This 159-nucleotide RNA sequence from Lachnospiraceae bacterium OF09-33XD belongs to the Rfam family "Clostridiales-1 RNA". A search with the family's covariance model found it, with a score of 64 bits. By type it is a small RNA.
RNA sequence: UGAAAGUUCCGGACGACAGCCGGGCCGACGGCAUGCCUGCAUGCACAGAAGCACGGAGAUCGAACGGAUAAGGAAGUAUGUGCCGCUGGCCGUCAGGCCGGAUUGUGAAUACUCCCGGCAGCUGUGGGAGCGCUGAAGGCGCCGGACAGCUGACUUUCA
Numbered sequence: 001u002g003a004a005a006g007u008u009c010c011g012g013a014c015g016a017c018a019g020c021c022g023g024g025c026c027g028a029c030g031g032c033a034u035g036c037c038u039g040c041a042u043g044c045a046c047a048g049a050a051g052c053a054c055g056g057a058g059a060u061c062g063a064a065c066g067g068a069u070a071a072g073g074a075a076g077u078a079u080g081u082g083c084c085g086c087u088g089g090c091c092g093u094c095a096g097g098c099c100g101g102a103u104u105g106u107g108a109a110u111a112c113u114c115c116c117g118g119c120a121g122c123u124g125u126g127g128g129a130g131c132g133c134u135g136a137a138g139g140c141g142c143c144g145g146a147c148a149g150c151u152g153a154c155u156u157u158c159a
Base pairs, nucleotide, nucleotide: 001159002158003157004156005155006154007153008068009067010066011065015061016060020056021055022054024052025051030046031044032043033042034041035040072116073115075113076112077111078110079109082106083105085103088099089098090097091096119152120151121150122149123148124147125146130142131141132140133139